[Rfam]
RNA sequence: AUAUUAACUUAAGAGGCAACUCUUAACUGCCAGCCAAAGAAAGUCGAGAGAUUUAAGUUUGGAGGGCAGAAAGCCUUGUAAAGCAGCGCUAAACAUACAGGGUGGUCGGUUCGGCGGUAGCGCAUACAACGACGAACCAU
Numbered sequence: 001a002u003a004u005u006a007a008c009u010u011a012a013g014a015g016g017c018a019a020c021u022c023u024u025a026a027c028u029g030c031c032a033g034c035c036a037a038a039g040a041a042a043g044u045c046g047a048g049a050g051a052u053u054u055a056a057g058u059u060u061g062g063a064g065g066g067c068a069g070a071a072a073g074c075c076u077u078g079u080a081a082a083g084c085a086g087c088g089c090u091a092a093a094c095a096u097a098c099a100g101g102g103u104g105g106u107c108g109g110u111u112c113g114g115c116g117g118u119a120g121c122g123c124a125u126a127c128a129a130c131g132a133c134g135a136a137c138c139a140u
Stems, first nucleotide, its partner, number of pairs: 009026007027069005034062005042053004073103008086123005108138006115131002
Rfam assigns this 140-nucleotide RNA sequence to the family "IMES-2 RNA motif". The sequence is in the family's curated seed alignment.